[Rfam]
RNA sequence: CAAAAAGGCGACCGGUUGAGUAUCCUAACGGGCUUUUCAAUUGGUCACACAUUAAUAAACUAUAGGAGACGUGUUAGUGGCCCGUAUCGCUGGCAUUAACGUUCCUGAC
Number, nucleotide and partner (000 for none) at each position: 001c000002a000003a000004a052005a000006a000007g000008g048009c000010g046011a045012c044013c043014g000015g000016u000017u000018g000019a000020g000021u000022a000023u000024c093025c092026u000027a000028a000029c084030g083031g082032g081033c000034u000035u000036u000037u108038c107039a106040a000041u000042u000043g013044g012045u011046c010047a000048c008049a000050c000051a000052u004053u000054a000055a000056u000057a000058a000059a000060c000061u000062a000063u000064a000065g000066g000067a000068g000069a000070c000071g000072u000073g000074u000075u000076a000077g000078u000079g000080g000081c032082c031083c030084g029085u000086a000087u000088c000089g000090c000091u000092g025093g024094c000095a000096u000097u000098a000099a000100c000101g000102u000103u000104c000105c000106u039107g038108a037109c000